[Rfam]
RNA sequence: CCGUAGGGAAAAUGAGGGACUUUUGGGGGCAGAUGUGUCUUUCUUAUCCUACCAUAAUGCCCCUAAAAAUCCUUAUUGCUCUUGCG
Numbered sequence: 001c002c003g004u005a006g007g008g009a010a011a012a013u014g015a016g017g018g019a020c021u022u023u024u025g026g027g028g029g030c031a032g033a034u035g036u037g038u039c040u041u042u043c044u045u046a047u048c049c050u051a052c053c054a055u056a057a058u059g060c061c062c063c064u065a066a067a068a069a070u071c072c073u074u075a076u077u078g079c080u081c082u083u084g085c086g
Stems, first nucleotide, its partner, number of pairs: 015074005021068003025064007034056004
Dot-bracket structure: ..............(((((.(((.(((((((..((((...............)))).))))))).))).)))))............